Small nucleolar RNA SNORD58: a 66-nucleotide sequence from Nannospalax galili. Rfam's curators write: snoRNA U58 is found in introns 1, 3 and 6 of the ribosomal protein RPL17 gene in humans. On this family, see Galardi et al., Mol Cell Biol 2002: "Purified box C/D snoRNPs are able to reproduce site-specific 2'-O-methylation of target RNA in vitro". The family's RNA type in Rfam is C/D-box small nucleolar RNA.

RNA sequence: CUGUGAUGAUGCCAUUUCUUAGUACACCUUUGGGUUCACCGUGAAAACAAUGAUUCUCUGAGCAGU
Numbered sequence: 001c002u003g004u005g006a007u008g009a010u011g012c013c014a015u016u017u018c019u020u021a022g023u024a025c026a027c028c029u030u031u032g033g034g035u036u037c038a039c040c041g042u043g044a045a046a047a048c049a050a051u052g053a054u055u056c057u058c059u060g061a062g063c064a065g066u
Stems, first nucleotide, its partner, number of pairs: 001065004